A member of the RNA family "Small nucleolar RNA SNORA77" from Bagarius yarrelli, 132 nucleotides long. The literature on the family includes a 2006 paper in RNA by Schattner et al., "A computational screen for mammalian pseudouridylation guide H/ACA RNAs". A search with the family's covariance model found it, with a score of 44 bits. From the family's description: ACA63 (SNORA77) is a member of the H/ACA class of snoRNAs that guide the sites of modification of uridines to pseudouridines. This snoRNA was identified by computational screening and its expression in mouse experimentally verified by Northern blot and primer extension analysis. ACA63 is proposed to guide the pseudouridylation of 18S rRNA U814.
[Rfam]
RNA sequence: GCAGACUCACUCUGUUUGGGGUCGCCUUCUCCGACCUCUGAACUUUUUCAGUCUGCUACAGCAAAGGUUCAGACCGCUCUACUCUGACUCUGCCCAUCUGGGUUAAGUUUAACAGCGCUCUGCUACAUCUAU
Dot-bracket structure: ((((((.......(((((((.(((.......)))..))))))).......)))))).............((((.((((.(....(((((...........)))))......).)))).))))..........
Numbered sequence: 001g002c003a004g005a006c007u008c009a010c011u012c013u014g015u016u017u018g019g020g021g022u023c024g025c026c027u028u029c030u031c032c033g034a035c036c037u038c039u040g041a042a043c044u045u046u047u048u049c050a051g052u053c054u055g056c057u058a059c060a061g062c063a064a065a066g067g068u069u070c071a072g073a074c075c076g077c078u079c080u081a082c083u084c085u086g087a088c089u090c091u092g093c094c095c096a097u098c099u100g101g102g103u104u105a106a107g108u109u110u111a112a113c114a115g116c117g118c119u120c121u122g123c124u125a126c127a128u129c130u131a132u
Stems, first nucleotide, its partner, number of pairs: 001056006014043007022034003070122004075117004080112001085105005